Shown here is an 81-nucleotide RNA from Rosellinia necatrix, a member of the family "tRNA".
The organism belongs to Rosellinia, within Eukaryota.
By type it is a transfer RNA.
Gene Ontology term of the family: triplet codon-amino acid adaptor activity.
Pairs were carried over by alignment from the consensus structure, which is taken from published work.

[Rfam]
RNA sequence: GGCACUUUGGCGGAGUGGUUAACGCGCAGGAUUGCUAAUCCUGUUCCUUCGGGAGCCCGAGUUCGAAUCUCGGAGGUGUCG
Numbered sequence: 001g002g003c004a005c006u007u008u009g010g011c012g013g014a015g016u017g018g019u020u021a022a023c024g025c026g027c028a029g030g031a032u033u034g035c036u037a038a039u040c041c042u043g044u045u046c047c048u049u050c051g052g053g054a055g056c057c058c059g060a061g062u063u064c065g066a067a068u069c070u071c072g073g074a075g076g077u078g079u080c081g
Stems, first nucleotide, its partner, number of pairs: 001080007010025003027043005057073005